Annotation: Rfam assigns this 84-nucleotide sequence from Trifolium pratense to the family "Small nucleolar RNA R16". By type it is a C/D-box small nucleolar RNA.
RNA sequence: UUUGGCAUAUGAUGAUGAAAAAUCUUAUCCUACACACCGAAUUCACCGUGUGGAACACAACUCUACUUAUUAUCUGAUGCCUUG
Numbered sequence: 001u002u003u004g005g006c007a008u009a010u011g012a013u014g015a016u017g018a019a020a021a022a023u024c025u026u027a028u029c030c031u032a033c034a035c036a037c038c039g040a041a042u043u044c045a046c047c048g049u050g051u052g053g054a055a056c057a058c059a060a061c062u063c064u065a066c067u068u069a070u071u072a073u074c075u076g077a078u079g080c081c082u083u084g
Stems, first nucleotide, its partner, number of pairs: 004081004
A reference for the family is Galardi et al. (2002), "Purified box C/D snoRNPs are able to reproduce site-specific 2'-O-methylation of target RNA in vitro", Mol Cell Biol. The family's consensus secondary structure was predicted with PFOLD.